[Rfam]
Nucleotides: 075
Base pairs, nucleotide, nucleotide: 008020009019010018011017039060040059041058042057043056044055045054046053047052
Number, partner (000 for none) and nucleotide at each position: 001000u002000c003000u004000g005000g006000c007000a008020g009019c010018c011017c012000u013000u014000c015000u016000u017011g018010g019009g020008c021000g022000u023000u024000u025000c026000c027000u028000c029000c030000c031000u032000a033000g034000a035000c036000u037000u038000c039060g040059g041058g042057c043056c044055g045054c046053u047052c048000u049000u050000c051000g052047g053046a054045g055044c056043g057042g058041c059040c060039u061000u062000u063000u064000u065000u066000g067000u068000u069000g070000g071000g072000c073000g074000c075000a